[Rfam]
RNA sequence: CUAACGAUACUCCCGCGUUGAACGCCCUCAAAGCAUUGCGCGGCGCACCCACAAACAUGGGCCGAGGUGAAAUUCCUGUGG
Numbered sequence: 001c002u003a004a005c006g007a008u009a010c011u012c013c014c015g016c017g018u019u020g021a022a023c024g025c026c027c028u029c030a031a032a033g034c035a036u037u038g039c040g041c042g043g044c045g046c047a048c049c050c051a052c053a054a055a056c057a058u059g060g061g062c063c064g065a066g067g068u069g070a071a072a073u074u075c076c077u078g079u080g081g
Base pairs, nucleotide, nucleotide: 012078013043014042015041016040017039018038044064045063048060049059065077066076067075

Shown here is an 81-nucleotide sequence from Firmicutes bacterium AF36-19BH, a member of the family "pemK RNA".